The family of this 73-nucleotide RNA sequence from Dipodomys ordii is "Small nucleolar RNA SNORD30". For this family Rfam cites "A mammalian gene with introns instead of exons generating stable RNA products" (Tycowski et al., Nature, 1996). The family is grouped with related families in Rfam's "SNORD30 clan".

Nucleotides: 073
Base pairs, nucleotide, nucleotide: 026055027054028053029052030051033049034048035047036046
Number, partner (000 for none) and nucleotide at each position: 001000g002000u003000g004000c005000a006000u007000g008000a009000u010000g011000a012000c013000u014000u015000c016000c017000u018000u019000a020000a021000u022000g023000g024000a025000a026055u027054c028053u029052c030051g031000u032000u033049c034048g035047g036046c037000u038000g039000a040000u041000g042000c043000c044000u045000u046036g047035c048034u049033g050000u051030u052029g053028a054027g055026a056000c057000u058000u059000g060000g061000a062000a063000a064000u065000c066000u067000g068000a069000u070000a071000u072000u073000c
Rfam links the family to the GO terms RNA processing and nucleolus. By type it is a C/D-box small nucleolar RNA. Pairs were carried over by alignment from the consensus structure. It scores 84 bits against the family's covariance model.